The record is an 82-nucleotide RNA from Verrucomicrobiia bacterium DG1235, which matches "tRNA" in Rfam. Rfam classes the family as a transfer RNA. A reference for the family is Hou (1993), "The tertiary structure of tRNA and the development of the genetic code", Trends Biochem Sci. The source organism's lineage runs through Bacteria, Pseudomonadati, Verrucomicrobiota and Verrucomicrobiia.
RNA sequence: GCCCAGGUGGCGGAAUUGGUAGACGCGGCGGAUUCAAAAUCCGCUUUCUUCGGAAGUGAGGGUUCGAGUCCCUCCCUGGGUA
Numbered sequence: 001g002c003c004c005a006g007g008u009g010g011c012g013g014a015a016u017u018g019g020u021a022g023a024c025g026c027g028g029c030g031g032a033u034u035c036a037a038a039a040u041c042c043g044c045u046u047u048c049u050u051c052g053g054a055a056g057u058g059a060g061g062g063u064u065c066g067a068g069u070c071c072c073u074c075c076c077u078g079g080g081u082a
Stems, first nucleotide, its partner, number of pairs: 001081007010026003028044005058074005